[Rfam]
RNA sequence: GUCUUAUCAAGAGAGGUGGAGGGACUGGCCCUUAGAAGCCUCGGCAACCAUUAAGUGGUAUUUACUUAAUACAGGUGCCAAUUCCAUCUAAGCUAUGCUUAGAAAGAUAAGAG
Dot-bracket structure: .(((((((....(((((...(((..[[[)))......)))))((((.(((((((((.......)))))))...))))))...(]]].((((((...))))))..)))))))).
Record summary:
The record is a 113-nucleotide sequence from Gracilibacillus dipsosauri, which matches "SAM riboswitch aptamer (S box leader)" in Rfam. The source organism's lineage runs through Bacteria, Bacilli, Caryophanales, Bacillaceae and Gracilibacillus. From the family's description: The SAM riboswitch is found upstream of a number of genes which code for proteins involved in methionine or cysteine biosynthesis in Gram-positive bacteria.